Source information: The family of this 213-nucleotide RNA sequence from Coxiella burnetii is "Coxiella burnetii sRNA 9". The base pairs follow the family's consensus structure, which was predicted with CMfinder.
[Rfam]
RNA sequence: AAUUGAGUAUAUAAGUUGUGUUUUCAACAAUGGUUUCGGCCUUCAAAAUUCGAGUACCGUUAUAAACAUGGAUACCCACUAGGUUGAUGUUAGGCAUUUUUAAAAAGAAAUUCUUAUUCGAAAAAACGAUUUCUUCAUCCAUGCCGAACUGCGAAGGCUUUCCACCUAUCUUCAAUAAAGCUGAUUUAGACACGUGAGAUGGAUUAAUUCUUA
Numbered sequence: 001a002a003u004u005g006a007g008u009a010u011a012u013a014a015g016u017u018g019u020g021u022u023u024u025c026a027a028c029a030a031u032g033g034u035u036u037c038g039g040c041c042u043u044c045a046a047a048a049u050u051c052g053a054g055u056a057c058c059g060u061u062a063u064a065a066a067c068a069u070g071g072a073u074a075c076c077c078a079c080u081a082g083g084u085u086g087a088u089g090u091u092a093g094g095c096a097u098u099u100u101u102a103a104a105a106a107g108a109a110a111u112u113c114u115u116a117u118u119c120g121a122a123a124a125a126a127c128g129a130u131u132u133c134u135u136c137a138u139c140c141a142u143g144c145c146g147a148a149c150u151g152c153g154a155a156g157g158c159u160u161u162c163c164a165c166c167u168a169u170c171u172u173c174a175a176u177a178a179a180g181c182u183g184a185u186u187u188a189g190a191c192a193c194g195u196g197a198g199a200u201g202g203a204u205u206a207a208u209u210c211u212u213a
Stems, first nucleotide, its partner, number of pairs: 005210003015028004031164003038159007049148003057071004093145005105135008166202006173196002181189003
The sequence is in the family's curated seed alignment. On this family, see Warrier et al., PLoS One 2014: "Identification of novel small RNAs and characterization of the 6S RNA of Coxiella burnetii". By type it is an antisense RNA.